This 69-nucleotide sequence from Spizella passerina belongs to the Rfam family "mir-8/mir-141/mir-200 microRNA precursor family".
Nucleotides: 069
Stems, first nucleotide, its partner, number of pairs: 002068006009061001010059010023046005
Number, partner (000 for none) and nucleotide at each position: 001000a002068u003067u004066g005065g006064u007063g008000u009061c010059u011058u012057a013056c014055c015054a016053g017052g018051c019050a020000c021000g022000c023046u024045u025044a026043g027042a028000c029000c030000u031000g032000g033000c034000u035000a036000c037000c038000u039000c040000u041000g042027u043026c044025u045024a046023a047000u048000a049000c050019u051018g052017u053016c054015u055014g056013g057012u058011a059010a060000u061009g062000c063007c064006g065005u066004c067003a068002a069000u
Overview
Pairs were carried over by alignment from the consensus structure, which was predicted with RNAalifold. Rfam 15.1 lists 2,669 matches to the family in 883 species. Its family is annotated with RISC complex and miRNA-mediated post-transcriptional gene silencing in the Gene Ontology.